[Rfam]
RNA sequence: UUAUGAGGUAGAGGUCGCAAUCAUUAAGACUAGUAUAGCUGAGAUUAGGAAGAAUCGGUGAAGCUUUAUGAAAGGAAUGGUUGCCGAAGUGUUAUUUUUCUUCUUGAAAAUAAUGCUGGGGCUGUUUCCGAUAAGGAACAGAACUGUCACAUGUGUGAGCAUGUGUUGAGCUAUCUUUCAA
Numbered sequence: 001u002u003a004u005g006a007g008g009u010a011g012a013g014g015u016c017g018c019a020a021u022c023a024u025u026a027a028g029a030c031u032a033g034u035a036u037a038g039c040u041g042a043g044a045u046u047a048g049g050a051a052g053a054a055u056c057g058g059u060g061a062a063g064c065u066u067u068a069u070g071a072a073a074g075g076a077a078u079g080g081u082u083g084c085c086g087a088a089g090u091g092u093u094a095u096u097u098u099u100c101u102u103c104u105u106g107a108a109a110a111u112a113a114u115g116c117u118g119g120g121g122c123u124g125u126u127u128c129c130g131a132u133a134a135g136g137a138a139c140a141g142a143a144c145u146g147u148c149a150c151a152u153g154u155g156u157g158a159g160c161a162u163g164u165g166u167u168g169a170g171c172u173a174u175c176u177u178u179c180a181a
Base pairs, nucleotide, nucleotide: 006176007175008174009173010172011171017084018083019082020081021080022079023078024077025076033069034068035067037065038064039063040062088117089116090115091114092113093112094111095110096109097108098107099106118145119144122141123140124139125138126137127136128135148165149164150163151162152161153160

A member of the RNA family "Lysine riboswitch aptamer" from Solibacillus silvestris, 181 nucleotides long.
The base pairs follow the family's consensus structure, which is taken from published work.
Riboswitches are metabolite binding domains within certain messenger RNAs that serve as precision sensors for their corresponding targets.